RNA sequence: CUGCAUCUUCUUAAUCAAGGAAAUCACGGUCGCGUGUGUGCCGGAAAGAAAGUGGCCUGUGAUCUCCGGUUUCUCUUUCUCGACCGUGUUUCCUUGGUUAACGAUAUGUGC
Numbered sequence: 001c002u003g004c005a006u007c008u009u010c011u012u013a014a015u016c017a018a019g020g021a022a023a024u025c026a027c028g029g030u031c032g033c034g035u036g037u038g039u040g041c042c043g044g045a046a047a048g049a050a051a052g053u054g055g056c057c058u059g060u061g062a063u064c065u066c067c068g069g070u071u072u073c074u075c076u077u078u079c080u081c082g083a084c085c086g087u088g089u090u091u092c093c094u095u096g097g098u099u100a101a102c103g104a105u106a107u108g109u110g111c
Stems, first nucleotide, its partner, number of pairs: 004108003009103001011101013025088006032081001034079001

The family of this 111-nucleotide RNA sequence from Glycine max is "MIR1509 microRNA precursor family".
The family's consensus secondary structure was predicted with RNAalifold.
Rfam links the family to the GO terms miRNA-mediated post-transcriptional gene silencing and RISC complex.
It is one of the family's seed sequences.
The source organism's lineage runs through Eukaryota, Gunneridae, Fabaceae, Phaseoleae and Glycine subgen. Soja.